[Rfam]
RNA sequence: CCGUGGGCUCACGCCCACGGCUAAAGGAUGGCGCCGCAUUGCGGCU
Number, nucleotide and partner (000 for none) at each position: 001c020002c019003g018004u017005g016006g015007g014008c013009u000010c000011a000012c000013g008014c007015c006016c005017a004018c003019g002020g001021c000022u000023a000024a000025a000026g000027g000028a000029u000030g000031g000032c000033g045034c044035c043036g042037c041038a000039u000040u000041g037042c036043g035044g034045c033046u000
Annotation: Acido-Lenti-1 RNA: a 46-nucleotide sequence from Lacipirellula limnantheis. Taxonomically the source falls in Lacipirellula (Bacteria, Pseudomonadati, Planctomycetia, Pirellulales). Rfam classes the family as a small RNA. Pairs were carried over by alignment from the consensus structure, which is taken from published work.